[Rfam]
DUF3800-IX RNA: a 66-nucleotide RNA. By type it is a small RNA. Rfam describes the family as follows. Actinobacteria, Firmicutes (1 example), Nitrospirae, Proteobacteria, Verrucomicrobia (1 example). Pairs were carried over by alignment from the consensus structure, which is taken from published work. The sequence is in the family's curated seed alignment.

RNA sequence: UACCCAAAACUCGAAUUGUCACCGUAUGGUGUGCGUGUCUUACAAGACUAGAGUUUUGGGUUUUUU
Numbered sequence: 001u002a003c004c005c006a007a008a009a010c011u012c013g014a015a016u017u018g019u020c021a022c023c024g025u026a027u028g029g030u031g032u033g034c035g036u037g038u039c040u041u042a043c044a045a046g047a048c049u050a051g052a053g054u055u056u057u058g059g060g061u062u063u064u065u066u
Base pairs, nucleotide, nucleotide: 002061003060004059005058006057007056009054010053011052012051017035018034019033020031021030022029023028037048038047039046040045